[Rfam]
RNA sequence: CGGCCCGUUUUGGCACUAGCACAUUUUUGCUUUUAUUUGUAGCUUUCGAGCAAUUAUGUGUAGUGCCAAUAUGGGAGA
Numbered sequence: 001c002g003g004c005c006c007g008u009u010u011u012g013g014c015a016c017u018a019g020c021a022c023a024u025u026u027u028u029g030c031u032u033u034u035a036u037u038u039g040u041a042g043c044u045u046u047c048g049a050g051c052a053a054u055u056a057u058g059u060g061u062a063g064u065g066c067c068a069a070u071a072u073g074g075g076a077g078a
Stems, first nucleotide, its partner, number of pairs: 004075005010069008019061006027053006
Shown here is a 78-nucleotide RNA sequence from Baryphthengus martii, a member of the family "mir-96 microRNA precursor family". NCBI's taxonomy places the organism under Eukaryota, Eumetazoa, Teleostomi, Sauropsida, Baryphthengus. The base pairs follow the family's consensus structure, which was predicted with RNAalifold.